[Rfam]
This 179-nucleotide RNA sequence from Hominibacterium faecale belongs to the Rfam family "6S / SsrS RNA".
RNA sequence: UAAAUCCUGAAGUGUUCGUUGAGAUAUUAUAAUUCAACCUACGUAUUGACAUUGGGAGCCCGGUGUUUUUGUCAGCGGAUGUCAAGCCGCCUUCGAGCGGAAGGCAGAGGCGGAAACAGGGCACCCCCCUAUCGCAGAUAGGGUGUGAAUUAUAGUCUCGACGGCAUGUCGGGAUUCUU
Dot-bracket structure: ..((((((((.((((.(((..........((((((((((..............(((.((((.(......(.(..((.....((...((((......))))..)).....)).).).).)))).)))...............))).)))))))........))))))).))))))))...
The family's RNA type in Rfam is non-coding RNA gene.